[Rfam]
RNA sequence: ACUCUCACUUAUUGUGUUGCUACAGUCCACAGUGAUAAGAGCAGUUAUACACAUGGGAUAAAACAGUAUUGGGCCAUUAUAAUAGACAGAGUAUAAAUCUUUCAUCUCUUUGCAUAGAUUAGACAUUG
Numbered sequence: 001a002c003u004c005u006c007a008c009u010u011a012u013u014g015u016g017u018u019g020c021u022a023c024a025g026u027c028c029a030c031a032g033u034g035a036u037a038a039g040a041g042c043a044g045u046u047a048u049a050c051a052c053a054u055g056g057g058a059u060a061a062a063a064c065a066g067u068a069u070u071g072g073g074c075c076a077u078u079a080u081a082a083u084a085g086a087c088a089g090a091g092u093a094u095a096a097a098u099c100u101u102u103c104a105u106c107u108c109u110u111u112g113c114a115u116a117g118a119u120u121a122g123a124c125a126u127u128g
Stems, first nucleotide, its partner, number of pairs: 003058005016045006024036001026035002069122004074117001076115001078114001080112002085106002089102003093098001

Notes
The family of this 128-nucleotide RNA from Microcebus murinus is "Small nucleolar RNA SNORA20". The match comes from Rfam's covariance-model search (60 bits). It is annotated as an H/ACA-box small nucleolar RNA. Clan: SNORA20 clan. The family has 17 seed sequences and 437 matches in Rfam 15.1. Its family is annotated with nucleolus and RNA processing in the Gene Ontology. The family's consensus secondary structure was predicted with ILM. The source organism's lineage runs through Eukaryota, Opisthokonta, Gnathostomata, Dipnotetrapodomorpha and Microcebus.